Rfam assigns this 119-nucleotide sequence from Streptomyces sp. ISL-98 to the family "Group II catalytic intron D1-D4-2".
[Rfam]
RNA sequence: GAAGGAAUGGCCCUUCGAAGUCGCCCUGCGGGGGGAGGCUUCAAACCGCCACAUGCUGCGAAAGUGGUGACGUGAUCGUGGUGAGCGAUGUGGAAAAGGCACUCUUCGAAGUGUCAGGU
Numbered sequence: 001g002a003a004g005g006a007a008u009g010g011c012c013c014u015u016c017g018a019a020g021u022c023g024c025c026c027u028g029c030g031g032g033g034g035g036a037g038g039c040u041u042c043a044a045a046c047c048g049c050c051a052c053a054u055g056c057u058g059c060g061a062a063a064g065u066g067g068u069g070a071c072g073u074g075a076u077c078g079u080g081g082u083g084a085g086c087g088a089u090g091u092g093g094a095a096a097a098g099g100c101a102c103u104c105u106u107c108g109a110a111g112u113g114u115c116a117g118g119u
Base pairs, nucleotide, nucleotide: 001016002015003014004013005012017042018041019040020039021038022037024035025034026033027032047118049093050092051091052090053089054088055082056081058079059078060077064073065072098115099114100113101112102111103110
About the family: Group II introns are found in rRNA, tRNA and mRNA of organelles in fungi, plants and protists, and also in mRNA in bacteria.